Shown here is a 222-nucleotide sequence from Agrilactobacillus composti, a member of the family "HNH endonuclease-associated RNA and ORF (HEARO) RNA". By type it is a non-coding RNA gene. A search with the family's covariance model found it, with a score of 92 bits.

[Rfam]
Nucleotides: 222
Stems, first nucleotide, its partner, number of pairs: 001061001003059006013031002015028002018025002032051008069085005088222006096214003103137002107131008139182004146177002151175002154172006
Number, partner (000 for none) and nucleotide at each position: 001061g002000u003059c004058a005057a006056c007055c008054g009000u010000g011000a012000c013031c014030c015028c016027u017000c018025a019024c020000u021000a022000a023000a024019g025018u026000a027016a028015g029000g030014g031013g032051c033050u034049u035048g036047a037046a038045g039044u040000a041000c042000u043000u044039g045038c046037u047036u048035c049034a050033a051032g052000u053000c054008u055007g056006g057005u058004u059003g060000u061001c062000u063000a064000g065000a066000c067000u068000c069085a070084g071083u072082g073081u074000c075000u076000u077000u078000u079000g080000g081073a082072c083071a084070c085069u086000a087000c088222g089221u090220u091219a092218u093217c094000u095000u096214g097213g098212u099000g100000a101000u102000c103137a104136c105000a106000c107131c108130u109129g110128g111127g112126a113125a114124u115000g116000a117000u118000a119000c120000c121000c122000u123000a124114g125113u126112u127111c128110c129109c130108a131107g132000c133000u134000c135000u136104g137103u138000g139182c140181g141180g142179g143000c144000a145000c146177u147176g148000u149000a150000a151175a152174c153000a154172g155171u156170c157169c158168u159167a160000a161000g162000g163000u164000c165000a166000a167159u168158g169157g170156g171155a172154c173000c174152g175151u176147c177146a178000a179142c180141c181140c182139g183000u184000g185000a186000g187000a188000a189000a190000a191000u192000c193000a194000a195000u196000g197000c198000u199000a200000g201000c202000c203000a204000u205000u206000g207000g208000u209000u210000a211000a212098g213097c214096c215000u216000u217093g218092a219091u220090a221089a222088c